Background: A member of the RNA family "mir-181 microRNA precursor family" from Silurus meridionalis, 87 nucleotides long.
[Rfam]
RNA sequence: UGGUUUUGUGGAACAUUCAACGCUGUCGGUGAGUUUGAUGUAAAUGUAAUAAAAAACCAUUGACCGUUGAUUGUGCCAUGCAGCCUG
Numbered sequence: 001u002g003g004u005u006u007u008g009u010g011g012a013a014c015a016u017u018c019a020a021c022g023c024u025g026u027c028g029g030u031g032a033g034u035u036u037g038a039u040g041u042a043a044a045u046g047u048a049a050u051a052a053a054a055a056a057c058c059a060u061u062g063a064c065c066g067u068u069g070a071u072u073g074u075g076c077c078a079u080g081c082a083g084c085c086u087g
Stems, first nucleotide, its partner, number of pairs: 001087003004083002007080002014073002017070006025064007033057004
A reference for the family is Ambros (2001), "microRNAs: tiny regulators with great potential", Cell.
Rfam links the family to the GO terms RISC complex and miRNA-mediated post-transcriptional gene silencing.